The record is a 68-nucleotide RNA sequence from Acetobacter pasteurianus, which matches "Glycine riboswitch aptamer" in Rfam.
RNA sequence: CUUCUGGAGAGAGACGCCCCCGAGGCGUCCGCCGACGGGAUAGCGAUCUCAGGCACAAGGCACAGAAG
Numbered sequence: 001c002u003u004c005u006g007g008a009g010a011g012a013g014a015c016g017c018c019c020c021c022g023a024g025g026c027g028u029c030c031g032c033c034g035a036c037g038g039g040a041u042a043g044c045g046a047u048c049u050c051a052g053g054c055a056c057a058a059g060g061c062a063c064a065g066a067a068g
Stems, first nucleotide, its partner, number of pairs: 001068006013029004031054003034050002038048002
Clan: Glycine riboswitch clan.